[Rfam]
A member of the RNA family "Small nucleolar RNA SNORD34" from Malurus cyaneus, 73 nucleotides long. Rfam classes the family as a C/D-box small nucleolar RNA. About the family: snoRNA U34 is found in intron 5 of the ribosomal protein L13a gene in humans. The family has 14 seed sequences and 1,319 matches in Rfam 15.1. The family is grouped with related families in Rfam's "SNORD34 clan". Rfam links the family to the GO terms RNA processing and nucleolus.
RNA sequence: UGGUGUCAAUGAUGUCGCUUUUACCUACAUUGUUUGAUUCUCCCUGAGAAAAAUUCCAAAUCCUGAGACACCU
Numbered sequence: 001u002g003g004u005g006u007c008a009a010u011g012a013u014g015u016c017g018c019u020u021u022u023a024c025c026u027a028c029a030u031u032g033u034u035u036g037a038u039u040c041u042c043c044c045u046g047a048g049a050a051a052a053a054u055u056c057c058a059a060a061u062c063c064u065g066a067g068a069c070a071c072c073u
Stems, first nucleotide, its partner, number of pairs: 002072001004070004

Record summary:
A search with the family's covariance model found it, with a score of 54 bits.